skipping-rope RNA: a 79-nucleotide RNA sequence from Clostridium sartagoforme. The base pairs follow the family's consensus structure, which is taken from published work. NCBI's taxonomy places the organism under Bacteria, Bacillota, Eubacteriales, Clostridiaceae, Clostridium.

RNA sequence: AAUUGUUGAGGUGAGAAAAGGCUCCUCAUACGCUGGUUCAGUAAAAAGAGAUGUAGGAUACGCCGCCCUACCAACAAUC
Number, nucleotide and partner (000 for none) at each position: 001a000002a078003u077004u076005g075006u074007u073008g072009a000010g000011g029012u028013g027014a026015g025016a000017a000018a000019a000020g064021g063022c062023u000024c000025c015026u014027c013028a012029u011030a000031c048032g042033c041034u040035g039036g000037u000038u000039c035040a034041g033042u032043a000044a000045a000046a000047a000048g031049a000050g000051a000052u000053g071054u070055a069056g068057g067058a000059u000060a000061c000062g022063c021064c020065g000066c000067c057068c056069u055070a054071c053072c008073a007074a006075c005076a004077a003078u002079c000
Overview
A search with the family's covariance model found it, with a score of 72 bits.